RNA sequence: AUGGAUGUGAGGAUCCUUUCCCCAAAUGAUCGACUAUGAUUAUACUGGGGCGCACAUGUAAUCCUCGUUAGAGGGUUCCAAGCCAGAAAUCUGAUCCAU
Number, nucleotide and partner (000 for none) at each position: 001a099002u098003g097004g096005a095006u000007g000008u000009g000010a000011g000012g000013a000014u000015c000016c000017u000018u000019u000020c000021c000022c000023c000024a000025a000026a000027u000028g000029a000030u000031c000032g000033a000034c000035u000036a000037u000038g000039a000040u000041u000042a000043u000044a000045c000046u000047g000048g000049g000050g000051c000052g000053c000054a000055c000056a000057u000058g000059u000060a000061a000062u000063c000064c000065u000066c000067g000068u000069u000070a000071g000072a000073g000074g000075g000076u000077u000078c000079c000080a000081a000082g000083c000084c000085a000086g000087a000088a000089a000090u000091c000092u000093g000094a000095u005096c004097c003098a002099u001
RNA: Small nucleolar RNA Z103